The record is a 62-nucleotide RNA sequence from aff. Roholtiella sp. LEGE 12411, which matches "Nitrogen stress-induced RNA 1" in Rfam. The match comes from Rfam's covariance-model search (67 bits). A reference for the family is Ionescu et al. (2010), "Heterocyst-specific transcription of NsiR1, a non-coding RNA encoded in a tandem array of direct repeats in cyanobacteria", J Mol Biol. By type it is a small RNA. Taxonomically the source falls in Roholtiella (Bacteria, Bacillati, Cyanophyceae, Fortieaceae).
[Rfam]
RNA sequence: UGGUAGAUGCACCCUGAUAACUCACUCCCCUAGUAGGUUAACACCCAUUGGGGGUUUUUUUA
Numbered sequence: 001u002g003g004u005a006g007a008u009g010c011a012c013c014c015u016g017a018u019a020a021c022u023c024a025c026u027c028c029c030c031u032a033g034u035a036g037g038u039u040a041a042c043a044c045c046c047a048u049u050g051g052g053g054g055u056u057u058u059u060u061u062a
Stems, first nucleotide, its partner, number of pairs: 002013003027054008036045002